A member of the RNA family "L13-Bacteroidia ribosomal protein leader", 78 nucleotides long.
Rfam's curators put it in the seed alignment.
A reference for the family is Eckert and Weinberg (2020), "Discovery of 20 novel ribosomal leader candidates in bacteria and archaea", BMC Microbiol.
It is annotated as a cis-regulatory leader.

[Rfam]
RNA sequence: GAAGAUAAUACUUAGAAUCUUCACAGCUUCUUCGUGUUAAUAGUGAUAUUCAUGGCCGAAUAUUAUGGUUAGUGAAUC
Numbered sequence: 001g002a003a004g005a006u007a008a009u010a011c012u013u014a015g016a017a018u019c020u021u022c023a024c025a026g027c028u029u030c031u032u033c034g035u036g037u038u039a040a041u042a043g044u045g046a047u048a049u050u051c052a053u054g055g056c057c058g059a060a061u062a063u064u065a066u067g068g069u070u071a072g073u074g075a076a077u078c
Base pairs, nucleotide, nucleotide: 001022002021003020004019005018006017037072038071039070040069041068043066044065045064046063047062048061049060050059051058